A member of the RNA family "Molybdenum/Tungsten riboswitch aptamer (Moco RNA motif)" from Syntrophomonas wolfei, 123 nucleotides long.

[Rfam]
RNA sequence: UUGAAUAUUUGUUUCCAAGCCUUUGAACCUAAGGUUUAUAACUAUGGUUCCCAGGCCGAUGGGUAUAGAUUGGAAACGGCUAUGCCUCCCCGUAUUGUGGAAAGGAGACGACGAGGGCUUAUU
Number, nucleotide and partner (000 for none) at each position: 001u000002u000003g000004a000005a000006u114007a000008u000009u000010u000011g109012u108013u107014u106015c105016c104017a000018a000019g056020c055021c054022u053023u000024u000025g050026a049027a048028c047029c046030u000031a000032a000033g043034g042035u041036u040037u000038a000039u000040a036041a035042c034043u033044a000045u000046g029047g028048u027049u026050c025051c000052c000053a022054g021055g020056c019057c000058g000059a000060u000061g087062g086063g085064u084065a083066u082067a081068g080069a000070u079071u078072g077073g000074a000075a000076a000077c072078g071079g070080c068081u067082a066083u065084g064085c063086c062087u061088c100089c099090c000091c000092g000093u000094a000095u000096u000097g000098u000099g089100g088101a000102a000103a000104g016105g015106a014107g013108a012109c011110g000111a000112c000113g000114a006115g000116g000117g000118c000119u000120u000121a000122u000123u000
NCBI's taxonomy places the organism under Bacteria, Bacillati, Clostridia, Eubacteriales, Syntrophomonas wolfei subsp. wolfei.
The match comes from Rfam's covariance-model search (74 bits).